Notes:
leuA-Halobacteria RNA: a 53-nucleotide sequence. The family's consensus secondary structure is taken from published work. The sequence is in the family's curated seed alignment. Rfam classes the family as a cis-regulatory element.
[Rfam]
RNA sequence: UUCCUCGGAGGAUAGAGGAAGUCGCCGCAAGGCGGCUGGCCGUGAAAUUCACG
Numbered sequence: 001u002u003c004c005u006c007g008g009a010g011g012a013u014a015g016a017g018g019a020a021g022u023c024g025c026c027g028c029a030a031g032g033c034g035g036c037u038g039g040c041c042g043u044g045a046a047a048u049u050c051a052c053g
Base pairs, nucleotide, nucleotide: 020037021036022035023034024033025032026031
Dot-bracket structure: ...................(((((((....)))))))................